[Rfam]
RNA: Plant signal recognition particle RNA
Organism: Ensete ventricosum
RNA sequence: GCCGAGCCCGGUAGCGUGGGCUUGUAACCCGAGCGGAGGCAAUAAGAUGGUGGGAUGUUGUGUUCAGCUCCAGUGGGUUGGGGGUGGCCGUGCAGUACCUGGCUUGCCCGUUCCAAGUCAAGCAGCUGAGUUAUGUGACCCGGGCGAAAGCUCGAGCCAUAUGUGAUCCUAAAGUGGAGGACACCGCGUUAGGCUGGUUUCACAGAGCAGCGUUUACCUCCCGCUCAUGACGGUGGAAGGAUUACAGGCUGGUGCACGACCCCCCUCGAUACGUCCGUUCGGCCAACACUGAUCAGACCAUCAUUUUU
Numbered sequence: 001g002c003c004g005a006g007c008c009c010g011g012u013a014g015c016g017u018g019g020g021c022u023u024g025u026a027a028c029c030c031g032a033g034c035g036g037a038g039g040c041a042a043u044a045a046g047a048u049g050g051u052g053g054g055a056u057g058u059u060g061u062g063u064u065c066a067g068c069u070c071c072a073g074u075g076g077g078u079u080g081g082g083g084g085u086g087g088c089c090g091u092g093c094a095g096u097a098c099c100u101g102g103c104u105u106g107c108c109c110g111u112u113c114c115a116a117g118u119c120a121a122g123c124a125g126c127u128g129a130g131u132u133a134u135g136u137g138a139c140c141c142g143g144g145c146g147a148a149a150g151c152u153c154g155a156g157c158c159a160u161a162u163g164u165g166a167u168c169c170u171a172a173a174g175u176g177g178a179g180g181a182c183a184c185c186g187c188g189u190u191a192g193g194c195u196g197g198u199u200u201c202a203c204a205g206a207g208c209a210g211c212g213u214u215u216a217c218c219u220c221c222c223g224c225u226c227a228u229g230a231c232g233g234u235g236g237a238a239g240g241a242u243u244a245c246a247g248g249c250u251g252g253u254g255c256a257c258g259a260c261c262c263c264c265c266u267c268g269a270u271a272c273g274u275c276c277g278u279u280c281g282g283c284c285a286a287c288a289c290u291g292a293u294c295a296g297a298c299c300a301u302c303a304u305u306u307u308u
Base pairs, nucleotide, nucleotide: 001040002039003038004023005022006021007020008019009018010017029036030035044307045306046305047304048303049302050301051300052299053298056295057294058292059291060290061288062287063286064285069282070281072279073278074277075276076275077274078273080267081266082265083264084263086261087260089258090257091256093254094253099252100251101250102249103248104247105246106245108240109239111238112237113236114235115234117231118230119229120228122226124225125224126223128168129167131165132163133162134161135160136159137158139156141154142153143152144151145150169174176221177220178219179218180217186213187212188211189210194205195204196203